This 373-nucleotide RNA from Chitinophaga japonensis belongs to the Rfam family "Bacterial RNase P class A". It scores 248 bits against the family's covariance model.
RNA sequence: ACUACAAACCGUGCUAUCGUCUUGGCCCCGUGCCAGGAAGGAAAGUCCGGACAGCAUAGAGCAACGCACCACCUAACGGGUGGGAUGUGCGGGUGCAAGGCCCGCGCAGACAGAAAGUGCCACAGAAAAUAACCGCCGGCCCCCGGGCAGGUAAGGGUGAAAAUGUGGGGUAAGGGCCCACGUCGCGGUGUGGUAACACGCCGGGAGGGUAAACCUUGCGUGCUGAAAUGCCAUGUAUACGGUCGUUUGAGGGCUGCUCGCCCGAUGACCGAGGGUAGGCAGAUACAGGCGGCGUGCGAGCGCCGUCGCAGAUAAAUGAUAGCAGCCCGCCCCCGGGCGGGAACAGAAUCCGGCUUACAGGUUUGUAGUUUUU
Dot-bracket structure: ((((((((((((((((((.(((((((.....)))))))....[[[.[[[[[((((...[[[[.((((((((((.....)))))(.(((((((((.....)))))))))..)((...(((((...........(((((.(((....))).)))..)).......((((((.......)))))).(.(((((((....))))))).)..)))..)))))))))))))...((((.......(((((......((((.]]]]))))...)))))......))))......((((((((....))))))))..........)))))))........................]]]]]]]].).))))))))))....
Taxonomically the source falls in Chitinophaga (Bacteria, Chitinophagia, Chitinophagales, Chitinophagaceae).
By type it is a ribozyme.